About this RNA: A member of the RNA family "FMN riboswitch aptamer (RFN element)" from Schaalia zhouxuedongae, 123 nucleotides long. On this family, see Vitreschak et al., Nucleic Acids Res 2002: "Regulation of riboflavin biosynthesis and transport genes in bacteria by transcriptional and translational attenuation". The organism belongs to Schaalia, within Bacteria. The base pairs follow the family's consensus structure, which is taken from published work.

[Rfam]
RNA sequence: CACGUGCUCCGGGGUCGGUGAAAGUCCGAGCCGGCGGUGAAAGUCCGCGACCCGCCACCUGUGGCGGCUGAACUGGUGAGAUUCCAGUACCGACGGUGAAAGUCCGGAUGGGAGGAGCAUCGU
Number, nucleotide and partner (000 for none) at each position: 001c000002a000003c000004g120005u119006g118007c117008u116009c115010c114011g000012g000013g000014g000015u000016c028017g027018g026019u000020g000021a000022a000023a000024g000025u000026c018027c017028g016029a000030g103031c102032c092033g091034g048035c047036g046037g045038u000039g000040a000041a000042a000043g090044u089045c037046c036047g035048c034049g000050a000051c000052c067053c066054g000055c000056c000057a000058c000059c000060u000061g000062u000063g000064g000065c000066g053067g052068c000069u000070g000071a000072a088073c087074u086075g085076g084077u000078g000079a000080g000081a000082u000083u000084c076085c075086a074087g073088u072089a044090c043091c033092g032093a000094c106095g105096g104097u000098g000099a000100a000101a000102g031103u030104c096105c095106g094107g000108a000109u000110g000111g000112g000113a000114g010115g009116a008117g007118c006119a005120u004121c000122g000123u000